[Rfam]
RNA sequence: AAACACCGGACGGGAGAGUCCCCAUCGCAUCUGACGAUGGGGCGCCGAAGGGGCAAACUCCCCGGAACCUCUCAGGCGCCAGGACCGCCCGGAUCAG
Numbered sequence: 001a002a003a004c005a006c007c008g009g010a011c012g013g014g015a016g017a018g019u020c021c022c023c024a025u026c027g028c029a030u031c032u033g034a035c036g037a038u039g040g041g042g043c044g045c046c047g048a049a050g051g052g053g054c055a056a057a058c059u060c061c062c063c064g065g066a067a068c069c070u071c072u073c074a075g076g077c078g079c080c081a082g083g084a085c086c087g088c089c090c091g092g093a094u095c096a097g
Stems, first nucleotide, its partner, number of pairs: 006092004011087003020042008044077003047073002051071003058064001

Glycine riboswitch aptamer: a 97-nucleotide sequence from Luteipulveratus mongoliensis.